The family of this 163-nucleotide RNA from Methyloligella halotolerans is "TPP riboswitch aptamer (THI element)". The base pairs follow the family's consensus structure, which is taken from published work.

RNA sequence: UUGUGUUCCGAGGGGUGUCCCAGGCAAGGGACUGAGACGCCGCGAUCGCAUCCUCCGGACGGUCCAUCUCUAGACGUUCGAUGGACCGGAGCGAUGCGCCUAGCGGUGACCCUUUGAACCUGAUCCGGGUCACGCCGGCGAAGGGACGGGAACCGUUUCAAGC
Numbered sequence: 001u002u003g004u005g006u007u008c009c010g011a012g013g014g015g016u017g018u019c020c021c022a023g024g025c026a027a028g029g030g031a032c033u034g035a036g037a038c039g040c041c042g043c044g045a046u047c048g049c050a051u052c053c054u055c056c057g058g059a060c061g062g063u064c065c066a067u068c069u070c071u072a073g074a075c076g077u078u079c080g081a082u083g084g085a086c087c088g089g090a091g092c093g094a095u096g097c098g099c100c101u102a103g104c105g106g107u108g109a110c111c112c113u114u115u116g117a118a119c120c121u122g123a124u125c126c127g128g129g130u131c132a133c134g135c136c137g138g139c140g141a142a143g144g145g146a147c148g149g150g151a152a153c154c155g156u157u158u159c160a161a162g163c
Stems, first nucleotide, its partner, number of pairs: 006151005011113004017032005040106003119144003125138004